[Rfam]
RNA: Early nodulin 40
Organism: Olea europaea
RNA sequence: AUGUAUUGGAAUGAAGCAUUUCAUGGAUCUUGAUAAAGCACAGCAGUUGGAAUGGUUUCGAGUUCAAAUUGUUUGCCUGUAAUUGGCCAUAACCUUGAGAAAUUUAAGGUUACAGCCAGUUUACAGCAAACCGGCAAGUCACAGAACGGCAGUGGGCUCUGUUAAGAGUCUU
Numbered sequence: 001a002u003g004u005a006u007u008g009g010a011a012u013g014a015a016g017c018a019u020u021u022c023a024u025g026g027a028u029c030u031u032g033a034u035a036a037a038g039c040a041c042a043g044c045a046g047u048u049g050g051a052a053u054g055g056u057u058u059c060g061a062g063u064u065c066a067a068a069u070u071g072u073u074u075g076c077c078u079g080u081a082a083u084u085g086g087c088c089a090u091a092a093c094c095u096u097g098a099g100a101a102a103u104u105u106a107a108g109g110u111u112a113c114a115g116c117c118a119g120u121u122u123a124c125a126g127c128a129a130a131c132c133g134g135c136a137a138g139u140c141a142c143a144g145a146a147c148g149g150c151a152g153u154g155g156g157c158u159c160u161g162u163u164a165a166g167a168g169u170c171u172u
Stems, first nucleotide, its partner, number of pairs: 051058001071131006089120002155170005